[Rfam]
Shown here is a 134-nucleotide sequence from Carboxydocella thermautotrophica, a member of the family "Molybdenum/Tungsten riboswitch aptamer (Moco RNA motif)". It scores 81 bits against the family's covariance model. NCBI's taxonomy places the organism under Bacteria, Bacillati, Eubacteriales, Carboxydocella, Carboxydocella thermautotrophica. The family has 160 seed sequences and 1,248 matches in Rfam 15.1.
RNA sequence: AUAAAUAAAUAACUCCGAGCCCGGAAAGCCUAAGGCUGAAAGCUAUGGCGCCGGGACGACCGCUUGCCGGUCCGGGGUAGCCGGGGAAACCUGACUGCCUCCCCUGUUUGGAAAGGAGUUUCGUUUGGACACUU
Number, nucleotide and partner (000 for none) at each position: 001a000002u000003a000004a000005a000006u000007a000008a000009a000010u000011a120012a119013c118014u117015c116016c115017g000018a000019g000020c055021c054022c053023g052024g051025a000026a000027a000028g049029c048030c047031u000032a000033a000034g044035g043036c042037u041038g000039a000040a000041a037042g036043c035044u034045a000046u000047g030048g029049c028050g000051c024052c023053g022054g021055g020056a000057c000058g072059a071060c070061c069062g068063c000064u000065u000066g000067c000068c062069g061070g060071u059072c058073c000074g000075g100076g099077g098078u097079a096080g095081c000082c093083g092084g091085g090086g000087a000088a000089a000090c085091c084092u083093g082094a000095c080096u079097g078098c077099c076100u075101c111102c110103c000104c000105u000106g000107u000108u000109u000110g102111g101112a000113a000114a000115g016116g015117a014118g013119u012120u011121u000122c000123g000124u000125u000126u000127g000128g000129a000130c000131a000132c000133u000134u000